Rfam assigns this 142-nucleotide sequence from Brassica carinata to the family "small nucleolar RNA snoR134". Rfam 15.1 lists 792 matches to the family in 228 species. NCBI's taxonomy places the organism under Eukaryota, Streptophytina, Gunneridae, rosids, Brassica.
RNA sequence: UCGCAGGAGCCUCCCGGCUAAUCUGAAUACAAAAAUUUGAGGAAGUAAGCCCCAAAGCUCCUGCUAGAUUGUGUGUUGCCGUUUGUGUUGCAGGUUUUCCUUUGUUCUCUAGACUUCCCUGUGUCAAAAAGCGGCUACAUCU
Numbered sequence: 001u002c003g004c005a006g007g008a009g010c011c012u013c014c015c016g017g018c019u020a021a022u023c024u025g026a027a028u029a030c031a032a033a034a035a036u037u038u039g040a041g042g043a044a045g046u047a048a049g050c051c052c053c054a055a056a057g058c059u060c061c062u063g064c065u066a067g068a069u070u071g072u073g074u075g076u077u078g079c080c081g082u083u084u085g086u087g088u089u090g091c092a093g094g095u096u097u098u099c100c101u102u103u104g105u106u107c108u109c110u111a112g113a114c115u116u117c118c119c120u121g122u123g124u125c126a127a128a129a130a131g132c133g134g135c136u137a138c139a140u141c142u
Stems, first nucleotide, its partner, number of pairs: 003064008016051004020046001022043003078135007086126002089123006098113002
Notes: For this family Rfam cites "Mining small RNA sequencing data: a new approach to identify small nucleolar RNAs in Arabidopsis" (Chen and Wu, Nucleic Acids Res, 2009). Its family is annotated with nucleolus and RNA processing in the Gene Ontology. Pairs were carried over by alignment from the consensus structure, which was predicted with RNAalifold. It scores 103 bits against the family's covariance model.